Description: Rfam assigns this 136-nucleotide RNA from Eleutherodactylus coqui to the family "Small nucleolar RNA SNORA42/SNORA80 family". About the family: The members of this family belong to the H/ACA class of snoRNAs that guide the sites of modification of uridines to pseudouridines. Human ACA42 (SNORA42) was cloned from HeLa cells by immunoprecipitation with anti-GAR1 antibody. Its is predicted to guide the pseudouridylation of residues U109 and U572 of 18S rRNA. ACA42 shares the same host gene with ACA26, ACA46, ACA50. This family also includes mammalian snoRNA ACA67 (SNORA80) which was identified by computational screening and its expression in mouse experimentally verified by Northern blot and primer extension analysis. Taxonomically the source falls in Eleutherodactylus (Eukaryota, Gnathostomata, Amphibia, Eleutherodactylus). For this family Rfam cites "A computational screen for mammalian pseudouridylation guide H/ACA RNAs" (Schattner et al., RNA, 2006).
[Rfam]
RNA sequence: GCAUGGCAAUGGAUUUAUGGUGGGGUCCUGGUAAUGGCCUUCCCAUAGUGUACUCCAUGCAAGAGAACAGUUCUGCUCCCAACCAUUGGCAGGCCUAUGCCCAUAAGCCGUGACCACUGAAGUGAGCCGUACAGUC
Numbered sequence: 001g002c003a004u005g006g007c008a009a010u011g012g013a014u015u016u017a018u019g020g021u022g023g024g025g026u027c028c029u030g031g032u033a034a035u036g037g038c039c040u041u042c043c044c045a046u047a048g049u050g051u052a053c054u055c056c057a058u059g060c061a062a063g064a065g066a067a068c069a070g071u072u073c074u075g076c077u078c079c080c081a082a083c084c085a086u087u088g089g090c091a092g093g094c095c096u097a098u099g100c101c102c103a104u105a106a107g108c109c110g111u112g113a114c115c116a117c118u119g120a121a122g123u124g125a126g127c128c129g130u131a132c133a134g135u136c
Base pairs, nucleotide, nucleotide: 001060002059003058004057005055006053008051015048016047017046018045019044020043022041023040024039026036073129075127076126077125078124084119085118089114092109093108094107096105